[Rfam]
Rfam assigns this 134-nucleotide RNA sequence from Propithecus coquereli to the family "Small nucleolar RNA SNORA31". Pairs were carried over by alignment from the consensus structure, which was predicted with RNAalifold. Rfam links the family to the GO terms RNA processing and nucleolus. The organism belongs to Propithecus, within Eukaryota. Rfam classes the family as an H/ACA-box small nucleolar RNA. The family has 5 seed sequences and 2,094 matches in Rfam 15.1. Rfam describes the family as follows. ACA31 (SNORA31) belongs to the H/ACA class of snoRNAs which are thought to guide the sites of modification of uridines to pseudouridines. ACA31 is predicted to guide the pseudouridylation of U3713 in 28S rRNA and U218 in 18S rRNA. This family includes the mouse homologue snoMBI-161. The match comes from Rfam's covariance-model search (56 bits).

RNA sequence: AUGCAUCUAUUUGACAGACCUGGAGCAGUUGCUGUCUGCUGCUAAGGUUUCUACCACAGAUGCAAGAAAAGAGUAUCCUUGUACUUCCUGUCUGUCUGAUUGUAGCAGCCAAGAUUGAAUGGGGGAAUACAGGA
Numbered sequence: 001a002u003g004c005a006u007c008u009a010u011u012u013g014a015c016a017g018a019c020c021u022g023g024a025g026c027a028g029u030u031g032c033u034g035u036c037u038g039c040u041g042c043u044a045a046g047g048u049u050u051c052u053a054c055c056a057c058a059g060a061u062g063c064a065a066g067a068a069a070a071g072a073g074u075a076u077c078c079u080u081g082u083a084c085u086u087c088c089u090g091u092c093u094g095u096c097u098g099a100u101u102g103u104a105g106c107a108g109c110c111a112a113g114a115u116u117g118a119a120u121g122g123g124g125g126a127a128u129a130c131a132g133g134a
Stems, first nucleotide, its partner, number of pairs: 002064007012053002016050005024040005076126005084117001088113002092108004